[Rfam]
RNA sequence: ACUCCGGUUGAUCCUGCCGGUCCCGACCGCUAUCGGGGUGGGGCUAAGCCAUGGGAGUCGUACGCCCCGCCGCUGCGGGGCGUGGCGGACGGCUGAGUAACACGUGGCUAACCUACCCUCGGGAGGGGGAUAACACCGGGAAACUGGUGCUAAUCCCCCAUAGAGGAGGGGGCCUGGAAGGGUCCCUCCUCGAAAAGGUGUGGCAGGGGUUAACGCUGCCACACCGCCCGAGGAUGGGGCUACGGCCCAUUAGGUAGUUGGCGGGGUAACGGCCCGCCAAGCCGAUAAUGGGUAGGGGCCGUGAGAGCGGGAGCCCCCAGAUGGGCACUGAGACAAGGGCCCAGGCCCUACGGGGCGCACCAGGCGCGAAACCUCCGCAAUGCGGGAAACCGUGACGGGGCCACCCCGAGUGCCCCCUUACGGGGGCUUUUCCCCGCUGUAGGAAGGCGGGGGAAUAAGCGGGGGGCAAGUCUGGUGUCAGCCGCCGCGGUAAUACCAGCCCCGCGAGUGGUCGGGACGAUUAUUG
Numbered sequence: 001a002c003u004c005c006g007g008u009u010g011a012u013c014c015u016g017c018c019g020g021u022c023c024c025g026a027c028c029g030c031u032a033u034c035g036g037g038g039u040g041g042g043g044c045u046a047a048g049c050c051a052u053g054g055g056a057g058u059c060g061u062a063c064g065c066c067c068c069g070c071c072g073c074u075g076c077g078g079g080g081c082g083u084g085g086c087g088g089a090c091g092g093c094u095g096a097g098u099a100a101c102a103c104g105u106g107g108c109u110a111a112c113c114u115a116c117c118c119u120c121g122g123g124a125g126g127g128g129g130a131u132a133a134c135a136c137c138g139g140g141a142a143a144c145u146g147g148u149g150c151u152a153a154u155c156c157c158c159c160a161u162a163g164a165g166g167a168g169g170g171g172g173c174c175u176g177g178a179a180g181g182g183u184c185c186c187u188c189c190u191c192g193a194a195a196a197g198g199u200g201u202g203g204c205a206g207g208g209g210u211u212a213a214c215g216c217u218g219c220c221a222c223a224c225c226g227c228c229c230g231a232g233g234a235u236g237g238g239g240c241u242a243c244g245g246c247c248c249a250u251u252a253g254g255u256a257g258u259u260g261g262c263g264g265g266g267u268a269a270c271g272g273c274c275c276g277c278c279a280a281g282c283c284g285a286u287a288a289u290g291g292g293u294a295g296g297g298g299c300c301g302u303g304a305g306a307g308c309g310g311g312a313g314c315c316c317c318c319a320g321a322u323g324g325g326c327a328c329u330g331a332g333a334c335a336a337g338g339g340c341c342c343a344g345g346c347c348c349u350a351c352g353g354g355g356c357g358c359a360c361c362a363g364g365c366g367c368g369a370a371a372c373c374u375c376c377g378c379a380a381u382g383c384g385g386g387a388a389a390c391c392g393u394g395a396c397g398g399g400g401c402c403a404c405c406c407c408g409a410g411u412g413c414c415c416c417c418u419u420a421c422g423g424g425g426g427c428u429u430u431u432c433c434c435c436g437c438u439g440u441a442g443g444a445a446g447g448c449g450g451g452g453g454a455a456u457a458a459g460c461g462g463g464g465g466g467c468a469a470g471u472c473u474g475g476u477g478u479c480a481g482c483c484g485c486c487g488c489g490g491u492a493a494u495a496c497c498a499g500c501c502c503c504g505c506g507a508g509u510g511g512u513c514g515g516g517a518c519g520a521u522u523a524u525u526g
Base pairs, nucleotide, nucleotide: 004020005019006018007017008016022516023515024514025513026512027511028510029509030508031507033409034408035407036406037405038404039403040402041401042367048365049364050363052362053361054360057086058085059084062083063082064081067078068077069076070075093320094319095318103244104243105242106241107240108239109238112237113236117233118232119231120230121229122228123227125159126158127157128156134149135148136147137146138145139144164190165189166188167187168186169185170184171183173182174181197225198224199223200222201221202220203219204218205217206216246292247291248290253283254282255281258280259279260278261277262276263275264274265273295317296316297315298314299310300309301308302307322343323342324341325340326339345356346355347354348353373399375398376397377396381394382393383392384391385390412427413426414425415424416423417422432452433451434450435449436448437447438446459505460504461503462502463501464500472499473498474497475496481488482487
RNA: Archaeal small subunit ribosomal RNA, nucleotides 1 to 526
Organism: Desulfurococcus amylolyticus